[Rfam]
Nucleotides: 166
Stems, first nucleotide, its partner, number of pairs: 002015005030164002036158001040153006046146005062141006073133003078128006085113004091106004
Number, partner (000 for none) and nucleotide at each position: 001000g002015c003014a004013g005012u006011c007000g008000u009000g010000a011006g012005g013004c014003u015002g016000g017000g018000u019000g020000u021000g022000a023000a024000g025000g026000a027000a028000g029000g030164c031163u032000a033000u034000g035000g036158g037000a038000a039000a040153c041152c042151u043150g044149u045148g046146a047145g048144c049143u050142g051000a052000u053000g054000a055000a056000c057000a058000a059000g060000a061000a062141c063140c064139g065138u066137a067136u068000a069000g070000a071000a072000g073133g074132c075131c076000g077000a078128c079127g080126u081125g082124g083123a084000c085113u086112g087111g088110g089000g090000a091106g092105c093104u094103g095000g096000c097000u098000c099000c100000a101000c102000a103094c104093a105092g106091c107000g108000a109000a110088u111087c112086c113085g114000a115000u116000u117000g118000g119000u120000u121000c122000a123083u124082c125081c126080a127079c128078g129000g130000a131075g132074g133073u134000a135000a136067a137066u138065a139064c140063g141062g142050c143049a144048g145047u146046u147000g148045c149044g150043c151042a152041g153040g154000g155000g156000a157000g158036c159000a160000u161000c162000g163031a164030g165000g166000g